[Rfam]
RNA sequence: AACAAACACUCUGUGACAGAAGAUUGAAACUGUCUGACACAGAGUGCUGUAGCAUGAAAGUCAAACCUAUUCCAUUGUUCUCUCACCUAUGAGGCAAGCUGUUUAAUAUAGACUUAAACAGU
Dot-bracket structure: ........(((((((.((((.(........).)))).))))))).............(((((.(...(((..((.(....((((......))))...).))....)))).))))).......
Numbered sequence: 001a002a003c004a005a006a007c008a009c010u011c012u013g014u015g016a017c018a019g020a021a022g023a024u025u026g027a028a029a030c031u032g033u034c035u036g037a038c039a040c041a042g043a044g045u046g047c048u049g050u051a052g053c054a055u056g057a058a059a060g061u062c063a064a065a066c067c068u069a070u071u072c073c074a075u076u077g078u079u080c081u082c083u084c085a086c087c088u089a090u091g092a093g094g095c096a097a098g099c100u101g102u103u104u105a106a107u108a109u110a111g112a113c114u115u116a117a118a119c120a121g122u
Stems, first nucleotide, its partner, number of pairs: 009044007017036004022031001058115005064109001068108003073101002076098001081094004

Rfam assigns this 122-nucleotide sequence from Castor canadensis to the family "Small nucleolar RNA SNORA28". About the family: ACA28 is a member of the H/ACA class of snoRNA that guide the sites of modification of uridines to pseudouridines. The match comes from Rfam's covariance-model search (86 bits). Gene Ontology terms of the family: nucleolus and RNA processing. On this family, see Huttenhofer et al., EMBO J 2001: "RNomics: an experimental approach that identifies 201 candidates for novel, small, non-messenger RNAs in mouse".